[Rfam]
Shown here is an 80-nucleotide RNA from Steinernema carpocapsae, a member of the family "SmY spliceosomal RNA". Taxonomically the source falls in Steinernema (Eukaryota, Ecdysozoa, Rhabditida, Strongyloidoidea).

RNA sequence: UUUGUCCAUAUCAUCAUUCCAGGGCCUUUCUAAAGAGCCGAAGUACAAUUUUUGGAGACCCAGUUCAUUAGAACGGGGUU
Dot-bracket structure: .....................((..(((....)))..))..................((((.((((....)))).)))).